[Rfam]
RNA sequence: GCGGGGUGAGGUAGUAGGUUGUGUGGUUUCAGGGCAGUGAUGUUGCCCCUCAGCAGAUAACUACACAACCUACUGCCUUCCCUAC
Numbered sequence: 001g002c003g004g005g006g007u008g009a010g011g012u013a014g015u016a017g018g019u020u021g022u023g024u025g026g027u028u029u030c031a032g033g034g035c036a037g038u039g040a041u042g043u044u045g046c047c048c049c050u051c052a053g054c055a056g057a058u059a060a061c062u063a064c065a066c067a068a069c070c071u072a073c074u075g076c077c078u079u080c081c082c083u084a085c
Stems, first nucleotide, its partner, number of pairs: 001085001003083004008079020032048004049056002
Rfam assigns this 85-nucleotide RNA sequence from Tupaia belangeri to the family "let-7 microRNA precursor family". A reference for the family is Rougvie (2001), "Control of developmental timing in animals", Nat Rev Genet. A search with the family's covariance model found it, with a score of 81 bits. The family has 64 seed sequences and 8,694 matches in Rfam 15.1. Lineage of the source: Eukaryota > Vertebrata > Gnathostomata > Tetrapoda > Tupaia belangeri. Its family is annotated with miRNA-mediated post-transcriptional gene silencing and RISC complex in the Gene Ontology.